Shown here is a 90-nucleotide RNA from Phrynocephalus forsythii, a member of the family "Z6 small nucleolar RNA". The family's consensus secondary structure was predicted with PFOLD. Lineage of the source: Eukaryota > Gnathostomata > Amniota > Unidentata > Phrynocephalus.
RNA sequence: UCUUGGUGGUGAAGUUUCCCUUUUCUGAUCAUUGGGCUUUGCCUGGGGUAAGUGCUUAAUCAGGCAGUCCAUUUCUCCUUGAUCUGAAGA
Number, nucleotide and partner (000 for none) at each position: 001u090002c089003u088004u087005g000006g000007u000008g000009g000010u000011g000012a000013a000014g000015u000016u000017u000018c000019c000020c000021u000022u000023u000024u000025c000026u000027g000028a000029u000030c000031a000032u000033u000034g000035g000036g000037c000038u000039u000040u000041g000042c000043c000044u000045g000046g000047g000048g000049u000050a000051a000052g000053u000054g000055c000056u000057u000058a000059a000060u000061c000062a000063g000064g000065c000066a000067g000068u000069c000070c000071a000072u000073u000074u000075c000076u000077c000078c000079u000080u000081g000082a000083u000084c000085u000086g000087a004088a003089g002090a001